[Rfam]
RNA: Small nucleolar RNA SNORD115
RNA sequence: GGGUCAGUGAUGAAAUCUUUGCCUUGUCUCUAGAGAGGUAUUGUCUUAAAAGUCUUCCACAAUAGAGUUAUGUUGAGGUCA
Numbered sequence: 001g002g003g004u005c006a007g008u009g010a011u012g013a014a015a016u017c018u019u020u021g022c023c024u025u026g027u028c029u030c031u032a033g034a035g036a037g038g039u040a041u042u043g044u045c046u047u048a049a050a051a052g053u054c055u056u057c058c059a060c061a062a063u064a065g066a067g068u069u070a071u072g073u074u075g076a077g078g079u080c081a
Stems, first nucleotide, its partner, number of pairs: 002080003005075002008072002